Rfam assigns this 100-nucleotide sequence from Arabis nemorensis to the family "MIR397 microRNA precursor family". Gene Ontology terms of the family: RISC complex and miRNA-mediated post-transcriptional gene silencing. Pairs were carried over by alignment from the consensus structure, which was predicted with WAR. The organism belongs to Arabis, within Eukaryota. The family has 7 seed sequences and 496 matches in Rfam 15.1. For this family Rfam cites "High throughput approaches reveal splicing of primary microRNA transcripts and tissue specific expression of mature microRNAs in Vitis vinifera" (Mica et al., BMC Genomics, 2009).
[Rfam]
RNA sequence: UGAAUGAACAUCAUUGAGUGCAGCGUUGAUGUAAUUUUUUGUUUUGUUUUUUGAAUAGAUUAAAGCAAUUAUAUCAGCGUUGCGCUCAAUUAUGUUUUUC
Numbered sequence: 001u002g003a004a005u006g007a008a009c010a011u012c013a014u015u016g017a018g019u020g021c022a023g024c025g026u027u028g029a030u031g032u033a034a035u036u037u038u039u040u041g042u043u044u045u046g047u048u049u050u051u052u053g054a055a056u057a058g059a060u061u062a063a064a065g066c067a068a069u070u071a072u073a074u075c076a077g078c079g080u081u082g083c084g085c086u087c088a089a090u091u092a093u094g095u096u097u098u099u100c
Base pairs, nucleotide, nucleotide: 006097007096008095009094010093011092013090014089015088016087017086018085019084020083021082022081023080024079025078026077027076028075030073031072032071